RNA sequence: UAUUCAAAAUUUCAUCCACUUGUAUUAUUAAAAGUUAAUGUGAUUGUCGAAAUAACUAGAAAAUGACAUGUGACAUACCAUGUGUACAUCAUGUUGACAUAUCAAGACUAAUUUUUAAUAACAAAAAAUGGGUGAAAGUUUCAACA
Numbered sequence: 001u002a003u004u005c006a007a008a009a010u011u012u013c014a015u016c017c018a019c020u021u022g023u024a025u026u027a028u029u030a031a032a033a034g035u036u037a038a039u040g041u042g043a044u045u046g047u048c049g050a051a052a053u054a055a056c057u058a059g060a061a062a063a064u065g066a067c068a069u070g071u072g073a074c075a076u077a078c079c080a081u082g083u084g085u086a087c088a089u090c091a092u093g094u095u096g097a098c099a100u101a102u103c104a105a106g107a108c109u110a111a112u113u114u115u116u117a118a119u120a121a122c123a124a125a126a127a128a129u130g131g132g133u134g135a136a137a138g139u140u141u142c143a144a145c146a
Base pairs, nucleotide, nucleotide: 003144004143006141007140008139010137011136012135013134014133015132016131018129020127021126023123025121026120028118029117030116031115032114033113